[Rfam]
RNA sequence: UUACCCUGUAAAGGGGAGUAGCGUCAGGAAUUUCCUGAAACAAAGUCGUCAUUACGUGGAUCGUAUCCACCGGCUUUGUUGGCAUACUUAUGCUU
Dot-bracket structure: ........................(((.......))).((((((((((.......(((((.....)))))))))))))))(((((....))))).
Manganese Mn2+ riboswitch aptamer (yybP-ykoY): a 95-nucleotide sequence from Metabacillus arenae. Taxonomically the source falls in Metabacillus (Bacteria, Bacillati, Bacilli, Caryophanales). The base pairs follow the family's consensus structure. About the family: This RNA was originally discovered in E. coli during a large scale screen and was named SraF. The family was later found to exist upstream of related families of protein genes in many bacteria, including the the yybP and ykoK genes in B. subtilis. The specific functions of these proteins are unknown, but this structured RNA element may be involved in their genetic regulation as a riboswitch. Its family is annotated with manganese ion binding in the Gene Ontology.